[Rfam]
RNA sequence: GGGCAACCGUGGCUUUCGAUUGUUACUGUGGGAACCGGAGGUAACAGUCUACAGCCAUGGUCGCCC
Numbered sequence: 001g002g003g004c005a006a007c008c009g010u011g012g013c014u015u016u017c018g019a020u021u022g023u024u025a026c027u028g029u030g031g032g033a034a035c036c037g038g039a040g041g042u043a044a045c046a047g048u049c050u051a052c053a054g055c056c057a058u059g060g061u062c063g064c065c066c
Stems, first nucleotide, its partner, number of pairs: 007060002010057004018049010
RNA: mir-132 microRNA precursor family